The family of this 59-nucleotide sequence is "Glutamine riboswitch aptamer (glnA leader)".
The literature on the family includes a 2011 paper in RNA Biol by Ames and Breaker, "Bacterial aptamers that selectively bind glutamine".
RNA sequence: AUCGUUCAAUCUAAGUAUUUCUUAGAUCGGAAGUAGGUCUGUGACUGAAGGAACGCAUG
Numbered sequence: 001a002u003c004g005u006u007c008a009a010u011c012u013a014a015g016u017a018u019u020u021c022u023u024a025g026a027u028c029g030g031a032a033g034u035a036g037g038u039c040u041g042u043g044a045c046u047g048a049a050g051g052a053a054c055g056c057a058u059g
Stems, first nucleotide, its partner, number of pairs: 003055005009027007030056001036046003